[Rfam]
RNA: 6S / SsrS RNA
Organism: Actinobacillus succinogenes
RNA sequence: GAUUACCUGAGAUGCUCGCCAGCGGGUUACGUCCCUGAGCCGAUACUUACAUACUUCGAGUUGGUUCUCUACUGUUGGUGUGCAGGCUUAGUUUCACUAAGAAGCCUAAAAACGGUUACAACUGACUCCCUUGAACCGUCGGGUUCAAGGACCGACCACCCACGACGGCAUCUCGGGGCCUAA
Number, nucleotide and partner (000 for none) at each position: 001g000002a181003u000004u000005a000006c177007c176008u175009g174010a173011g172012a171013u170014g169015c168016u000017c167018g166019c000020c000021a000022g000023c000024g000025g000026g000027u000028u000029a000030c000031g152032u151033c150034c149035c000036u147037g146038a145039g144040c143041c142042g000043a000044u000045a000046c000047u000048u000049a000050c000051a000052u000053a000054c000055u000056u000057c000058g128059a127060g126061u000062u124063g123064g122065u121066u120067c000068u000069c000070u000071a116072c115073u114074g113075u112076u111077g000078g000079u000080g000081u000082g105083c104084a000085g000086g000087c101088u100089u099090a098091g097092u000093u000094u000095c000096a000097c091098u090099a089100a088101g087102a000103a000104g083105c082106c000107u000108a000109a000110a000111a076112a075113c074114g073115g072116u071117u000118a000119c000120a066121a065122c064123u063124g062125a000126c060127u059128c058129c000130c000131u000132u000133g000134a000135a000136c000137c000138g000139u000140c000141g000142g041143g040144u039145u038146c037147a036148a000149g034150g033151a032152c031153c000154g000155a000156c000157c000158a000159c000160c000161c000162a000163c000164g000165a000166c018167g017168g015169c014170a013171u012172c011173u010174c009175g008176g007177g006178g000179c000180c000181u002182a000183a000